RNA sequence: UCGGGCGCCUGGUACAGGGCCCGGUCAUCGGGCACCCGGAAGGUGUCCGGGGUGCUCUUAUCCAUGUUGCUCAAAGGAGGAUAUGGCUAUGACCA
Numbered sequence: 001u002c003g004g005g006c007g008c009c010u011g012g013u014a015c016a017g018g019g020c021c022c023g024g025u026c027a028u029c030g031g032g033c034a035c036c037c038g039g040a041a042g043g044u045g046u047c048c049g050g051g052g053u054g055c056u057c058u059u060a061u062c063c064a065u066g067u068u069g070c071u072c073a074a075a076g077g078a079g080g081a082u083a084u085g086g087c088u089a090u091g092a093c094c095a
Base pairs, nucleotide, nucleotide: 001024002023003022004021005020006019008018009017031055035051036050037049038048039047040046056092057091059089060088062086063085064084065083066082067081068080070079071078072077
RNA: Repression of heat shock gene expression (ROSE) element
Organism: Bradyrhizobium ivorense